MIR535 microRNA precursor family: a 97-nucleotide RNA from Vanilla planifolia.
Lineage of the source: Eukaryota > Mesangiospermae > Liliopsida > Orchidaceae > Vanilla.
Its family is annotated with RISC complex and miRNA-mediated post-transcriptional gene silencing in the Gene Ontology.
The family has 20 seed sequences and 544 matches in Rfam 15.1.
The match comes from Rfam's covariance-model search (78 bits).
RNA sequence: UCGAUGCUUUGACAACGAGAGAGAGCACGCUAGUCUGCUGCCAUUGAUGGUGGUCAUGGAUGUGUACUGGAGUGCUCCCUCUCGUUGUCAUACACUU
Number, nucleotide and partner (000 for none) at each position: 001u000002c000003g000004a000005u000006g000007c000008u000009u000010u090011g089012a088013c087014a086015a000016c084017g083018a000019g000020a080021g079022a000023g077024a000025g075026c074027a073028c072029g000030c070031u069032a068033g067034u066035c000036u000037g000038c000039u000040g000041c000042c000043a000044u000045u000046g000047a000048u000049g000050g000051u000052g000053g000054u000055c000056a000057u000058g000059g000060a000061u000062g000063u000064g000065u000066a034067c033068u032069g031070g030071a000072g028073u027074g026075c025076u000077c023078c000079c021080u020081c000082u000083c017084g016085u000086u014087g013088u012089c011090a010091u000092a000093c000094a000095c000096u000097u000